Shown here is a 103-nucleotide RNA from Belliella baltica, a member of the family "SAM riboswitch aptamer (S box leader)". The source organism's lineage runs through Bacteria, Pseudomonadati, Bacteroidota, Cyclobacteriaceae and Belliella baltica. The match comes from Rfam's covariance-model search (74 bits).
[Rfam]
RNA sequence: UGCUUAUCGAGAAAGACCGAGGGAAGGGCCCUGCGACGUCUUAGCAACCUGAAUCAACAAGGUGCUAACUCCCAUUCUGAAGUAGAACAGAAAUAGAUGAGCG
Numbered sequence: 001u002g003c004u005u006a007u008c009g010a011g012a013a014a015g016a017c018c019g020a021g022g023g024a025a026g027g028g029c030c031c032u033g034c035g036a037c038g039u040c041u042u043a044g045c046a047a048c049c050u051g052a053a054u055c056a057a058c059a060a061g062g063u064g065c066u067a068a069c070u071c072c073c074a075u076u077c078u079g080a081a082g083u084a085g086a087a088c089a090g091a092a093a094u095a096g097a098u099g100a101g102c103g
Stems, first nucleotide, its partner, number of pairs: 001103008013042005021031003026073003043066004048062002051058001070095001075092005